[Rfam]
RNA sequence: GGGCACCUUCGGGGGCCUAUACCCGGCCCCCGAGGGGGCUACUAACAGACAGGCGGGGCAACCCGCCGCAAAGCAACGGAAGACAGAAA
Dot-bracket structure: ((((.(((...)))))))......(((.....................................)))......................
This 89-nucleotide sequence from Maritimibacter fusiformis belongs to the Rfam family "L2-Alphaproteobacteria ribosomal protein leader". The literature on the family includes a 2020 paper in BMC Microbiol by Eckert and Weinberg, "Discovery of 20 novel ribosomal leader candidates in bacteria and archaea". It scores 52 bits against the family's covariance model. Lineage of the source: Bacteria > Pseudomonadota > Rhodobacterales > Roseobacteraceae > Maritimibacter.